[Rfam]
RNA sequence: AGAGCGGCAUGGUAAAGCUUGGUGACCCCUGGCCACUCGGAGAGCGGACCUAGCUGGCGUUGUAACACGCCGGGACAGAUUGAAAUCGGGGCCCAGGGUGUGCCGCUCU
Dot-bracket structure: (((((((....(.....(((((....(((....(.(((...))).).......(((((((......)))))))...............))).))))).)...)))))))

This 109-nucleotide RNA belongs to the Rfam family "DUF3800-III RNA". Rfam's curators put it in the seed alignment.